The family of this 62-nucleotide sequence from Pseudonocardia sp. is "Actino-pnp RNA". Rfam classes the family as a cis-regulatory element. Taxonomically the source falls in Pseudonocardia (Bacteria, Bacillati, Actinomycetota, Pseudonocardiaceae).
[Rfam]
RNA sequence: GCCGGUCCUCGGUAGUGGCCCCCGGGGCCAGUCGGUCCCGAGGGCUUCGAUCGAAGGCCGGC
Numbered sequence: 001g002c003c004g005g006u007c008c009u010c011g012g013u014a015g016u017g018g019c020c021c022c023c024g025g026g027g028c029c030a031g032u033c034g035g036u037c038c039c040g041a042g043g044g045c046u047u048c049g050a051u052c053g054a055a056g057g058c059c060g061g062c
Base pairs, nucleotide, nucleotide: 001062002061003060004059005058006057007056009054010053011052012051013050017046018045019044020043021042023040024039025038026037027036028035029034